About this RNA:
This 129-nucleotide RNA sequence from Capra hircus belongs to the Rfam family "Small nucleolar RNA U109". A search with the family's covariance model found it, with a score of 64 bits. The family's RNA type in Rfam is H/ACA-box small nucleolar RNA. The literature on the family includes a 2005 paper in Nucleic Acids Res by Gu et al., "A novel experimental approach for systematic identification of box H/ACA snoRNAs from eukaryotes".

RNA sequence: CCGCAUAUGAAUAUCGGCUCCUCAUGCUUUUGCAAGAUGGAAUCUAUAGUAUGCUAGAAUAAUAAAGGAGUUCUCAGGGCUGGCAAUGUUACAUUAGCUGUGGAGUAGCUCUGUGUUUCUCCUACAUUU
Number, nucleotide and partner (000 for none) at each position: 001c000002c000003g054004c053005a052006u051007a050008u049009g000010a000011a000012u000013a000014u040015c039016g038017g000018c036019u035020c000021c032022u000023c000024a000025u000026g000027c000028u000029u000030u000031u000032g021033c000034a000035a019036g018037a000038u016039g015040g014041a000042a000043u000044c000045u000046a000047u000048a000049g008050u007051a006052u005053g004054c003055u000056a000057g000058a000059a000060u000061a000062a000063u000064a000065a000066a000067g122068g121069a120070g119071u000072u000073c000074u000075c000076a000077g000078g000079g109080c108081u000082g000083g000084c103085a000086a101087u100088g099089u000090u097091a000092c000093a000094u000095u000096a000097g090098c000099u088100g087101u086102g000103g084104a000105g000106u000107a000108g080109c079110u000111c000112u000113g000114u000115g000116u000117u000118u000119c070120u069121c068122c067123u000124a000125c000126a000127u000128u000129u000